Rfam assigns this 175-nucleotide RNA sequence from Psychrilyobacter sp. S5 to the family "Lysine riboswitch aptamer". The family has 47 seed sequences and 3,224 matches in Rfam 15.1. The organism belongs to Psychrilyobacter, within Bacteria.
RNA sequence: AAUGUUGAUAGAGGUUGCAUUGAAUAUCAGUAGUUUAGUGGAGAUGGUUGGUCUGUGAAACUGGAUGAAAGGAUUUUUUGCCGAAGGGUAUUUUUUAACAGAAAAAUACUACUGGGGGUAUAAUGAAUAAUUAUAUCACUGUCAUUGAAUUUUUCAAUGGAGCGCUAUCUGAAGG
Numbered sequence: 001a002a003u004g005u006u007g008a009u010a011g012a013g014g015u016u017g018c019a020u021u022g023a024a025u026a027u028c029a030g031u032a033g034u035u036u037a038g039u040g041g042a043g044a045u046g047g048u049u050g051g052u053c054u055g056u057g058a059a060a061c062u063g064g065a066u067g068a069a070a071g072g073a074u075u076u077u078u079u080g081c082c083g084a085a086g087g088g089u090a091u092u093u094u095u096u097a098a099c100a101g102a103a104a105a106a107u108a109c110u111a112c113u114g115g116g117g118g119u120a121u122a123a124u125g126a127a128u129a130a131u132u133a134u135a136u137c138a139c140u141g142u143c144a145u146u147g148a149a150u151u152u153u154u155c156a157a158u159g160g161a162g163c164g165c166u167a168u169c170u171g172a173a174g175g
Stems, first nucleotide, its partner, number of pairs: 007169005017081003022076004033066007085113002088109008114140002117137008142160007
A search with the family's covariance model found it, with a score of 112 bits.